RNA sequence: UUCCAUCGCUAAGUCAAGGCUUCUUCCUACGACUCAUGUCGUUGCUCUGCUCAAUGGAGGUCUGUCUGUUACAGCUUUGGUAGAUUGACACUUUCCCGCACCGAAUUUCUUUCUGAAGCUAGGUUGACUGGUCUUCGUCUUGAAGGCCUGUCGCAAGGGACAGCCGUGUUUUGUUUUUGAGUAGAGUUCUGCCUCUGCCUUUUCUGGUGGCUUGGUGGCAGAACUCUUAGUAACAUCCCACACAUUC
Numbered sequence: 001u002u003c004c005a006u007c008g009c010u011a012a013g014u015c016a017a018g019g020c021u022u023c024u025u026c027c028u029a030c031g032a033c034u035c036a037u038g039u040c041g042u043u044g045c046u047c048u049g050c051u052c053a054a055u056g057g058a059g060g061u062c063u064g065u066c067u068g069u070u071a072c073a074g075c076u077u078u079g080g081u082a083g084a085u086u087g088a089c090a091c092u093u094u095c096c097c098g099c100a101c102c103g104a105a106u107u108u109c110u111u112u113c114u115g116a117a118g119c120u121a122g123g124u125u126g127a128c129u130g131g132u133c134u135u136c137g138u139c140u141u142g143a144a145g146g147c148c149u150g151u152c153g154c155a156a157g158g159g160a161c162a163g164c165c166g167u168g169u170u171u172u173g174u175u176u177u178u179g180a181g182u183a184g185a186g187u188u189c190u191g192c193c194u195c196u197g198c199c200u201u202u203u204c205u206g207g208u209g210g211c212u213u214g215g216u217g218g219c220a221g222a223a224c225u226c227u228u229a230g231u232a233a234c235a236u237c238c239c240a241c242a243c244a245u246u247c
Base pairs, nucleotide, nucleotide: 003080004079005078017067018066019065020064023060024059025058026057027056029042030041031040032039033038091163092162094160095159096158100124101123102122104120106118107117108116109115127151131147132146133145134144135143136142137141166241167240168239172235173234174233183227184226185225186224187223190220191219192218193217195210196209197208198207199206

The record is a 247-nucleotide RNA from Penicillium cosmopolitanum, which matches "Small nucleolar RNA snR191" in Rfam. The family's RNA type in Rfam is H/ACA-box small nucleolar RNA. NCBI's taxonomy places the organism under Eukaryota, Ascomycota, Eurotiomycetidae, Aspergillaceae, Penicillium.